[Rfam]
RNA sequence: AGCCUGUGCCCAGCAGCCCCUGAGAACCACGUCUGCUCUGAGCUGGGUACUGCCUGUUCAGAACAAAUGCCGGUUCCCAGACGCUGCCAGCUGGCC
Numbered sequence: 001a002g003c004c005u006g007u008g009c010c011c012a013g014c015a016g017c018c019c020c021u022g023a024g025a026a027c028c029a030c031g032u033c034u035g036c037u038c039u040g041a042g043c044u045g046g047g048u049a050c051u052g053c054c055u056g057u058u059c060a061g062a063a064c065a066a067a068u069g070c071c072g073g074u075u076c077c078c079a080g081a082c083g084c085u086g087c088c089a090g091c092u093g094g095c096c
Base pairs, nucleotide, nucleotide: 002095003094004093006091007090013087014086015085016084017083020080021079022078024076025075026074027073028072030069031068032067034065035064037062038061039060040059041058042057043056045054046053
RNA: mir-589 microRNA precursor family
Organism: Homo sapiens